[Rfam]
RNA sequence: GUCAUUGUGAGGUGGGGUCUGAAGGAAGCGUGGAGCAAAGAUACGAGCCGACGGACAGGAACUGGAUAAGUAGGCGCCAAGGCCGGACGAGUUGGCGUGAGACGACGAAGUCCCUAUUCACCAAGGGCCGGAAGCGUAAAUCCAGCGGUUGUGUAUCGAAAGUCAGUAUA
Numbered sequence: 001g002u003c004a005u006u007g008u009g010a011g012g013u014g015g016g017g018u019c020u021g022a023a024g025g026a027a028g029c030g031u032g033g034a035g036c037a038a039a040g041a042u043a044c045g046a047g048c049c050g051a052c053g054g055a056c057a058g059g060a061a062c063u064g065g066a067u068a069a070g071u072a073g074g075c076g077c078c079a080a081g082g083c084c085g086g087a088c089g090a091g092u093u094g095g096c097g098u099g100a101g102a103c104g105a106c107g108a109a110g111u112c113c114c115u116a117u118u119c120a121c122c123a124a125g126g127g128c129c130g131g132a133a134g135c136g137u138a139a140a141u142c143c144a145g146c147g148g149u150u151g152u153g154u155a156u157c158g159a160a161a162g163u164c165a166g167u168a169u170a
Stems, first nucleotide, its partner, number of pairs: 002015005030169003035163002040157006046150005062145006074137003081129004085113004091106004